This 131-nucleotide sequence from Clupea harengus belongs to the Rfam family "Small nucleolar RNA SNORA77". Rfam classes the family as an H/ACA-box small nucleolar RNA. It scores 59 bits against the family's covariance model. NCBI's taxonomy places the organism under Eukaryota, Deuterostomia, Chordata, Actinopteri, Clupea.

[Rfam]
Nucleotides: 131
Base pairs, nucleotide, nucleotide: 001056002055003054004053005052006051014043015042016041017040018039019038020037022035023034024033068122069121070120071119072118073117074116076114077110079108080107081106084104086102087101088100
Number, partner (000 for none) and nucleotide at each position: 001056g002055c003054a004053g005052a006051c007000u008000c009000a010000c011000u012000c013000u014043g015042u016041u017040c018039c019038a020037u021000g022035c023034u024033g025000c026000c027000c028000c029000a030000u031000u032000c033024c034023g035022g036000c037020a038019u039018g040017g041016a042015a043014c044000u045000u046000u047000u048000a049000g050000u051006g052005u053004c054003u055002g056001c057000u058000a059000c060000a061000u062000u063000a064000a065000c066000a067000u068122g069121c070120a071119g072118a073117a074116u075000g076114u077110a078000a079108c080107a081106c082000g083000c084104u085000a086102g087101c088100u089000u090000g091000c092000u093000a094000u095000u096000u097000a098000u099000g100088g101087g102086c103000c104084a105000a106081g107080u108079g109000c110077u111000g112000g113000u114076a115000u116074g117073u118072u119071c120070u121069g122068c123000u124000a125000c126000a127000u128000c129000u130000c131000a
The literature on the family includes a 2006 paper in RNA by Schattner et al., "A computational screen for mammalian pseudouridylation guide H/ACA RNAs". From the family's description: ACA63 (SNORA77) is a member of the H/ACA class of snoRNAs that guide the sites of modification of uridines to pseudouridines. This snoRNA was identified by computational screening and its expression in mouse experimentally verified by Northern blot and primer extension analysis. ACA63 is proposed to guide the pseudouridylation of 18S rRNA U814.